[Rfam]
RNA sequence: AAGGCGGCAUCCGAAAAGCUUGAAAAGAGUAGAAA
Numbered sequence: 001a002a003g004g005c006g007g008c009a010u011c012c013g014a015a016a017a018g019c020u021u022g023a024a025a026a027g028a029g030u031a032g033a034a035a
Stems, first nucleotide, its partner, number of pairs: 002021004010034001012032001
Shown here is a 35-nucleotide RNA, a member of the family "DUF805b RNA".
The sequence is in the family's curated seed alignment.
Rfam classes the family as a cis-regulatory element.
The base pairs follow the family's consensus structure, which is taken from published work.
The family is grouped with related families in Rfam's "DUF805 clan".